[Rfam]
RNA: Clostridiales-1 RNA
RNA sequence: AGAUGCCAGGGGCACAAGUCUGAAACCACAGUGUGCUUGCACGUGAGAGGUUUUAUGAUAUAGUGCCCCGCUCCGAAUAUGGGCAUAAAAGUGGAUCGUAAGCUUCACGAUAUGCGAAUGUAGGGCAGAAUUGUGGGAGUACGAAGUACGAAACAAUUUGUAUGGCAUUU
Numbered sequence: 001a002g003a004u005g006c007c008a009g010g011g012g013c014a015c016a017a018g019u020c021u022g023a024a025a026c027c028a029c030a031g032u033g034u035g036c037u038u039g040c041a042c043g044u045g046a047g048a049g050g051u052u053u054u055a056u057g058a059u060a061u062a063g064u065g066c067c068c069c070g071c072u073c074c075g076a077a078u079a080u081g082g083g084c085a086u087a088a089a090a091g092u093g094g095a096u097c098g099u100a101a102g103c104u105u106c107a108c109g110a111u112a113u114g115c116g117a118a119u120g121u122a123g124g125g126c127a128g129a130a131u132u133g134u135g136g137g138a139g140u141a142c143g144a145a146g147u148a149c150g151a152a153a154c155a156a157u158u159u160g161u162a163u164g165g166c167a168u169u170u
Stems, first nucleotide, its partner, number of pairs: 001170007010068004016061001018059003021055007029047001031044005073125002077121004083115004091108005097102001128159007139149004
Dot-bracket structure: (((((((..((((..(.((((((((((.(.(((((....)))))..).))))))).))).)...))))....((..((((..((((....(((((.(....).)))))...))))..))))..))..(((((((....((((...))))...)))))))....)))))))